[Rfam]
RNA sequence: UUCUUUCGGGUCUGUAGUUGCGGAAGUCGAAUUCUCGCUUCUUAGCCCAUGGCAGAUGCGGUCUAAAGGGUCCACGUAAGCUGCGUUCACCCGCAGCGAGCACGGCGUAUCCUAGGAGUAAGUCGCACCUCCCGGUGGUUUUGCGACAAGUGGUCGCCCGGGGGAGAGGGCAGAGCGCAAGCGAACCCCCCGUGCGCGAGUGUGGGGUCGAAAACUAGGUCAGCCGAAAGAA
Numbered sequence: 001u002u003c004u005u006u007c008g009g010g011u012c013u014g015u016a017g018u019u020g021c022g023g024a025a026g027u028c029g030a031a032u033u034c035u036c037g038c039u040u041c042u043u044a045g046c047c048c049a050u051g052g053c054a055g056a057u058g059c060g061g062u063c064u065a066a067a068g069g070g071u072c073c074a075c076g077u078a079a080g081c082u083g084c085g086u087u088c089a090c091c092c093g094c095a096g097c098g099a100g101c102a103c104g105g106c107g108u109a110u111c112c113u114a115g116g117a118g119u120a121a122g123u124c125g126c127a128c129c130u131c132c133c134g135g136u137g138g139u140u141u142u143g144c145g146a147c148a149a150g151u152g153g154u155c156g157c158c159c160g161g162g163g164g165a166g167a168g169g170g171c172a173g174a175g176c177g178c179a180a181g182c183g184a185a186c187c188c189c190c191c192g193u194g195c196g197c198g199a200g201u202g203u204g205g206g207g208u209c210g211a212a213a214a215c216u217a218g219g220u221c222a223g224c225c226g227a228a229a230g231a232a
Stems, first nucleotide, its partner, number of pairs: 001232009012223003015217005049203003052062001055111006071105002103210001124196005129164007168190003175182002
Rfam assigns this 232-nucleotide sequence from Slackia heliotrinireducens to the family "raiA RNA". Rfam classes the family as a riboswitch. The sequence is in the family's curated seed alignment. Lineage of the source: Bacteria > Coriobacteriia > Eggerthellaceae > Slackia > Slackia heliotrinireducens.